Rfam assigns this 161-nucleotide sequence from Catenovulum maritimum to the family "Guanidine-I riboswitch aptamer". Lineage of the source: Bacteria > Pseudomonadati > Gammaproteobacteria > Alteromonadaceae > Catenovulum. It scores 75 bits against the family's covariance model. This family represents a conserved RNA structure found upstream of the ykkC and yxkD genes in Bacillus subtilis and related genes in other bacteria. The function of this family is unclear although it has been suggested that it may function to switch on efflux pumps and detoxification systems in response to harmful environmental molecules. Gene Ontology term of the family: regulation of gene expression.

RNA sequence: UAAACAGAUAACUAGGGUUCCGGUUGAUUUAUCAUAAUGAAUCAAUGUCUGGUCCGAGAGUUUUCAACCUAGCCGCAUAAUGACCAAUCACAACGUUAGUGUUUGUGUUCUUAUGUUUGCGUUAGCAAAGGGUUACACGGCGGGAUAAAAGCCCGGGAGGU
Numbered sequence: 001u002a003a004a005c006a007g008a009u010a011a012c013u014a015g016g017g018u019u020c021c022g023g024u025u026g027a028u029u030u031a032u033c034a035u036a037a038u039g040a041a042u043c044a045a046u047g048u049c050u051g052g053u054c055c056g057a058g059a060g061u062u063u064u065c066a067a068c069c070u071a072g073c074c075g076c077a078u079a080a081u082g083a084c085c086a087a088u089c090a091c092a093a094c095g096u097u098a099g100u101g102u103u104u105g106u107g108u109u110c111u112u113a114u115g116u117u118u119g120c121g122u123u124a125g126c127a128a129a130g131g132g133u134u135a136c137a138c139g140g141c142g143g144g145a146u147a148a149a150a151g152c153c154c155g156g157g158a159g160g161u
Base pairs, nucleotide, nucleotide: 007065008064010062011061012060015055016054020052021051022049023046024045025044026043027042028041029040030039031038066134067133068132069131070130136156138159142154143153144152